Y RNA: a 104-nucleotide RNA sequence from Macaca mulatta. Rfam describes the family as follows. Y RNAs are components of the Ro ribonucleoprotein particle (Ro RNP), in association with Ro60 and La proteins. The Y RNAs and Ro60 and La proteins are well conserved, but the function of the Ro RNP is not known. The family has 104 seed sequences and 26,986 matches in Rfam 15.1. It is annotated as a non-coding RNA gene. It scores 49 bits against the family's covariance model.
RNA sequence: GAGUGGCCUGAAUGCAGUGGUGUUUACAACUAAUUAAUGACAACCAGUUACAGAUUUCUUUGCUCCUUCUCCAUUCCCACUGCUUUUCACUUGACUAGCCUAAA
Numbered sequence: 001g002a003g004u005g006g007c008c009u010g011a012a013u014g015c016a017g018u019g020g021u022g023u024u025u026a027c028a029a030c031u032a033a034u035u036a037a038u039g040a041c042a043a044c045c046a047g048u049u050a051c052a053g054a055u056u057u058c059u060u061u062g063c064u065c066c067u068u069c070u071c072c073a074u075u076c077c078c079a080c081u082g083c084u085u086u087u088c089a090c091u092u093g094a095c096u097a098g099c100c101u102a103a104a
Base pairs, nucleotide, nucleotide: 001100004097005096006095008093010092011091014088016081017080018079019078020077022076028064030062032060033059